RNA sequence: UUUCAUUUUAUUUUAUUUUUUGAUCAAAGAGCAAUUCUCGAUUGUUAGAUUUAACGAAGAAAAUCGGAACUCAAUACGUUAGGGCUCAAUUUUCUUGAAAAUCCU
Numbered sequence: 001u002u003u004c005a006u007u008u009u010a011u012u013u014u015a016u017u018u019u020u021u022g023a024u025c026a027a028a029g030a031g032c033a034a035u036u037c038u039c040g041a042u043u044g045u046u047a048g049a050u051u052u053a054a055c056g057a058a059g060a061a062a063a064u065c066g067g068a069a070c071u072c073a074a075u076a077c078g079u080u081a082g083g084g085c086u087c088a089a090u091u092u093u094c095u096u097g098a099a100a101a102u103c104c105u
Stems, first nucleotide, its partner, number of pairs: 016030005034064003038060002043056005081095004

This 105-nucleotide RNA from Gossypium raimondii belongs to the Rfam family "Heliobacter pylori small RNA HPnc0580". The match comes from Rfam's covariance-model search (37 bits). The literature on the family includes a 2010 paper in Nature by Sharma et al., "The primary transcriptome of the major human pathogen Helicobacter pylori". The family's consensus secondary structure was predicted with RNAalifold.